The family of this 82-nucleotide RNA sequence from Niallia circulans is "Glycine riboswitch aptamer". The source organism's lineage runs through Bacteria, Bacillati, Bacillota, Bacilli and Niallia.
[Rfam]
RNA sequence: GGAGCAGCUUCUGGAGAGACCGUUCUGUUAAAAACGGCACCGAAGGAUUCACAAUCUCAGGUAAAAGGACAGAAGAUCAACC
Numbered sequence: 001g002g003a004g005c006a007g008c009u010u011c012u013g014g015a016g017a018g019a020c021c022g023u024u025c026u027g028u029u030a031a032a033a034a035c036g037g038c039a040c041c042g043a044a045g046g047a048u049u050c051a052c053a054a055u056c057u058c059a060g061g062u063a064a065a066a067g068g069a070c071a072g073a074a075g076a077u078c079a080a081c082c
Stems, first nucleotide, its partner, number of pairs: 006077001008075006020037004039062003042058002046056003